[Rfam]
RNA sequence: CCCGCCAAGCCUCUCAUUGAAGCUCAAAUGUGCGGGU
Numbered sequence: 001c002c003c004g005c006c007a008a009g010c011c012u013c014u015c016a017u018u019g020a021a022g023c024u025c026a027a028a029u030g031u032g033c034g035g036g037u
Stems, first nucleotide, its partner, number of pairs: 001036005008024003
A member of the RNA family "abiF RNA", 37 nucleotides long.
About the family: Actinobacteria, Bacteroidetes, Clostridia, Proteobacteria, one Clostridia phage.
The sequence is in the family's curated seed alignment.
Pairs were carried over by alignment from the consensus structure, which is taken from published work.
By type it is a small RNA.